[Rfam]
RNA sequence: GAAGACCCUGUUGAGCUUGACUCUAGUCUGACCUUGUGAAGAGACAUGAGGGGUGUAGGAUAGGUGGGAGGUGCUUGCACCGACGGUGAAAUACCACUACUCUCAUCGUUUCUUUACUUAUUCGGUGAGUCGGGAAACGGGCGUUCCGACGGUUCGUCCGAUUUCUGGUGCUAAGCGGCCGCCCUCACGGGGGGCCGCGACCCGCUCCGAAGACAGCGUCAGGCGGGGAGUUUGACUGGGGCGGUACAUCUGUCAAAUGGUAACGCAGGUGUCCUAAGGCGAGCUCAGCGAGGACGGAAACCUCGCGUAGAGCAAAAGGGCAAAAGCUCGCUUGAUCUUGAUUUUCAGUACGAAUACAGACCGUGAAAGCGUGGCCUAUCGAUCCUUUUGACCGUCGGAGUUCGACGCAAGGGGUGUCAGAAAAGUUACCACAGGGAUAACUGGCUUGUGGCAGCCAAGCGUUCAUAGCGACGUUGCUUUUUGAUCCUUCGAUGUCGGCUCUUCCUAUCAUUGUGAAGCAGAAUUCACCAAGCGUUGGAUUGUUCACCCACCAAUAGGGAACGUGAGCUGGGUUUAGACCGUCGUGAGACAGGUUAGUU
Numbered sequence: 001g002a003a004g005a006c007c008c009u010g011u012u013g014a015g016c017u018u019g020a021c022u023c024u025a026g027u028c029u030g031a032c033c034u035u036g037u038g039a040a041g042a043g044a045c046a047u048g049a050g051g052g053g054u055g056u057a058g059g060a061u062a063g064g065u066g067g068g069a070g071g072u073g074c075u076u077g078c079a080c081c082g083a084c085g086g087u088g089a090a091a092u093a094c095c096a097c098u099a100c101u102c103u104c105a106u107c108g109u110u111u112c113u114u115u116a117c118u119u120a121u122u123c124g125g126u127g128a129g130u131c132g133g134g135a136a137a138c139g140g141g142c143g144u145u146c147c148g149a150c151g152g153u154u155c156g157u158c159c160g161a162u163u164u165c166u167g168g169u170g171c172u173a174a175g176c177g178g179c180c181g182c183c184c185u186c187a188c189g190g191g192g193g194g195c196c197g198c199g200a201c202c203c204g205c206u207c208c209g210a211a212g213a214c215a216g217c218g219u220c221a222g223g224c225g226g227g228g229a230g231u232u233u234g235a236c237u238g239g240g241g242c243g244g245u246a247c248a249u250c251u252g253u254c255a256a257a258u259g260g261u262a263a264c265g266c267a268g269g270u271g272u273c274c275u276a277a278g279g280c281g282a283g284c285u286c287a288g289c290g291a292g293g294a295c296g297g298a299a300a301c302c303u304c305g306c307g308u309a310g311a312g313c314a315a316a317a318g319g320g321c322a323a324a325a326g327c328u329c330g331c332u333u334g335a336u337c338u339u340g341a342u343u344u345u346c347a348g349u350a351c352g353a354a355u356a357c358a359g360a361c362c363g364u365g366a367a368a369g370c371g372u373g374g375c376c377u378a379u380c381g382a383u384c385c386u387u388u389u390g391a392c393c394g395u396c397g398g399a400g401u402u403c404g405a406c407g408c409a410a411g412g413g414g415u416g417u418c419a420g421a422a423a424a425g426u427u428a429c430c431a432c433a434g435g436g437a438u439a440a441c442u443g444g445c446u447u448g449u450g451g452c453a454g455c456c457a458a459g460c461g462u463u464c465a466u467a468g469c470g471a472c473g474u475u476g477c478u479u480u481u482u483g484a485u486c487c488u489u490c491g492a493u494g495u496c497g498g499c500u501c502u503u504c505c506u507a508u509c510a511u512u513g514u515g516a517a518g519c520a521g522a523a524u525u526c527a528c529c530a531a532g533c534g535u536u537g538g539a540u541u542g543u544u545c546a547c548c549c550a551c552c553a554a555u556a557g558g559g560a561a562c563g564u565g566a567g568c569u570g571g572g573u574u575u576a577g578a579c580c581g582u583c584g585u586g587a588g589a590c591a592g593g594u595u596a597g598u599u
Stems, first nucleotide, its partner, number of pairs: 007435004012431002014427005020231004027223006036117010046106007063098005070081002121211005131204004139159005175198005234247001235245003248270006273374002279331006285311002288306006312321002336360003341355004362371003385413006393407004444485001446483001448482001450478006459469002496571001497569004501563001502560005509534001513528005536550003540546001577595004581590003

Rfam assigns this 599-nucleotide part of an RNA from Strongylocentrotus purpuratus to the family "Eukaryotic large subunit ribosomal RNA". Rfam's curators put it in the seed alignment. NCBI's taxonomy places the organism under Eukaryota, Bilateria, Echinoidea, Euechinoidea, Strongylocentrotus. The family's consensus secondary structure is taken from published work.